[Rfam]
RNA sequence: AUCCUUUCCUAAGUACUAGAGCCGCAGGAAUCUGAAACCGAGAACUCCUGCAGCCUUGGUACUUAACAAGGGGA
Numbered sequence: 001a002u003c004c005u006u007u008c009c010u011a012a013g014u015a016c017u018a019g020a021g022c023c024g025c026a027g028g029a030a031u032c033u034g035a036a037a038c039c040g041a042g043a044a045c046u047c048c049u050g051c052a053g054c055c056u057u058g059g060u061a062c063u064u065a066a067c068a069a070g071g072g073g074a
Base pairs, nucleotide, nucleotide: 002073003072004071005070006069007068010065011064012063013062014061015060016059017058018057019056024051025050026049027048028047029046

Record summary: This 74-nucleotide RNA sequence from Strigamia maritima belongs to the Rfam family "mir-252 microRNA precursor family". A search with the family's covariance model found it, with a score of 59 bits. Gene Ontology terms of the family: RISC complex and miRNA-mediated post-transcriptional gene silencing. The family is grouped with related families in Rfam's "mir-252 microRNA precursor family". On this family, see Li et al., BMC Genomics 2009: "Direct sequencing and expression analysis of a large number of miRNAs in Aedes aegypti and a multi-species survey of novel mosquito miRNAs".